[Rfam]
RNA sequence: GCGUUAGCUUUAGCUCACUGGUUACUUCACAGGUUCAACUUUCGAGUAAGUGCGCGCCUGUCUCACCGUGGGCGCUGCCUGCUGUUUUU
Numbered sequence: 001g002c003g004u005u006a007g008c009u010u011u012a013g014c015u016c017a018c019u020g021g022u023u024a025c026u027u028c029a030c031a032g033g034u035u036c037a038a039c040u041u042u043c044g045a046g047u048a049a050g051u052g053c054g055c056g057c058c059u060g061u062c063u064c065a066c067c068g069u070g071g072g073c074g075c076u077g078c079c080u081g082c083u084g085u086u087u088u089u
Base pairs, nucleotide, nucleotide: 002084003083005081006080007079013073014072015071016070019068020067021066026056028054030052
Vault RNA: an 89-nucleotide RNA from Scyliorhinus torazame. By type it is a non-coding RNA gene. The family has 73 seed sequences and 2,873 matches in Rfam 15.1. Rfam describes the family as follows. This family of RNAs are found as part of the enigmatic vault ribonucleoprotein complex. The complex consists of a major vault protein (MVP), two minor vault proteins (VPARP and TEP1), and several small untranslated RNA molecules. It has been suggested that the vault complex is involved in drug resistance. The base pairs follow the family's consensus structure, which is taken from published work. On this family, see Stadler et al., Mol Biol Evol 2009: "Evolution of Vault RNAs".